Notes
Shown here is an 84-nucleotide RNA sequence from Moraxella sp. HMSC061H09, a member of the family "sRNA-Xcc1". The base pairs follow the family's consensus structure, which was predicted with RNAalifold.
RNA sequence: GGCGGGUUGAUAGGGGUAAAUACAAGACCGAAAGGAAAUAGCCCCAGCCGACUUUUAGCGGUAGUUGAGACCUGCCACUCUAUU
Numbered sequence: 001g002g003c004g005g006g007u008u009g010a011u012a013g014g015g016g017u018a019a020a021u022a023c024a025a026g027a028c029c030g031a032a033a034g035g036a037a038a039u040a041g042c043c044c045c046a047g048c049c050g051a052c053u054u055u056u057a058g059c060g061g062u063a064g065u066u067g068a069g070a071c072c073u074g075c076c077a078c079u080c081u082a083u084u
Stems, first nucleotide, its partner, number of pairs: 001076007013045004019039001028035002047062004